Annotation: Selenocysteine insertion sequence 1: a 66-nucleotide sequence from Sula dactylatra. The base pairs follow the family's consensus structure, which is taken from published work. The incorporation of selenocysteine into a protein sequence is directed by an in-frame UGA codon (usually a stop codon) within the coding region of the mRNA. Selenoprotein mRNAs contain a conserved secondary structure in the 3' UTR that is required for the distinction of UGA stop from UGA selenocysteine. The selenocysteine insertion sequence (SECIS) is around 60 nt in length and adopts a hairpin structure which is sufficiently well-defined and conserved to act as a computational screen for selenoprotein genes.
RNA sequence: GCUUGAAUUUGUGAGGACAGGAGCAUAAACUAUGACCUGUGGGCUCCUGUCUGAUGUUUUGCAAUC
Numbered sequence: 001g002c003u004u005g006a007a008u009u010u011g012u013g014a015g016g017a018c019a020g021g022a023g024c025a026u027a028a029a030c031u032a033u034g035a036c037c038u039g040u041g042g043g044c045u046c047c048u049g050u051c052u053g054a055u056g057u058u059u060u061g062c063a064a065u066c
Stems, first nucleotide, its partner, number of pairs: 001066001003064003016051009031039002